Background:
A member of the RNA family "Manganese Mn2+ riboswitch aptamer (yybP-ykoY)" from Coralloluteibacterium stylophorae, 133 nucleotides long. Rfam links the family to the GO term manganese ion binding.
RNA sequence: CUCGGAUUCGUUGGGGAGUAGCCUGCUUCCGCGCUUCGCGGAAGCGCCCGCAUCAACAGACUCGGCGCACGCGCCGUGGUGCGGGCAGCCGUCCUGGUUGGCGAGACCAUCGGCAUGUCGGCGCAAUGCGGUC
Numbered sequence: 001c002u003c004g005g006a007u008u009c010g011u012u013g014g015g016g017a018g019u020a021g022c023c024u025g026c027u028u029c030c031g032c033g034c035u036u037c038g039c040g041g042a043a044g045c046g047c048c049c050g051c052a053u054c055a056a057c058a059g060a061c062u063c064g065g066c067g068c069a070c071g072c073g074c075c076g077u078g079g080u081g082c083g084g085g086c087a088g089c090c091g092u093c094c095u096g097g098u099u100g101g102c103g104a105g106a107c108c109a110u111c112g113g114c115a116u117g118u119c120g121g122c123g124c125a126a127u128g129c130g131g132u133c
Base pairs, nucleotide, nucleotide: 025045026044027043028042029041046086047085048084049083050082051081052080053079054078055077063076064075065074066073067072
Overview
Rfam's curators write: This RNA was originally discovered in E. coli during a large scale screen and was named SraF. The family was later found to exist upstream of related families of protein genes in many bacteria, including the the yybP and ykoK genes in B. subtilis. Lineage of the source: Bacteria > Pseudomonadati > Gammaproteobacteria > Lysobacteraceae > Coralloluteibacterium.